[Rfam]
Rfam assigns this 86-nucleotide sequence from Bacillus sp. PK3_68 to the family "c-di-GMP-I riboswitch aptamer". The organism belongs to Bacillus, within Bacteria. The base pairs follow the family's consensus structure, which is taken from published work.
Nucleotides: 086
Stems, first nucleotide, its partner, number of pairs: 012037002017032006040080004045076003048071003055065001
Number, partner (000 for none) and nucleotide at each position: 001000c002000a003000u004000a005000g006000a007000a008000a009000a010000a011000g012037g013036c014000a015000a016000a017032c018031u019030u020029a021028u022027u023000g024000a025000a026000a027022a028021a029020u030019a031018a032017g033000g034000a035000c036013g037012c038000a039000a040080a041079g042078c043077u044000u045076c046075a047074g048071g049070u050069c051000u052000a053000a054000g055065g056000g057000g058000a059000a060000a061000u062000a063000a064000g065055c066000u067000a068000u069050g070049a071048c072000g073000g074047c075046u076045g077043g078042g079041c080040u081000g082000c083000c084000g085000a086000u
A search with the family's covariance model found it, with a score of 79 bits.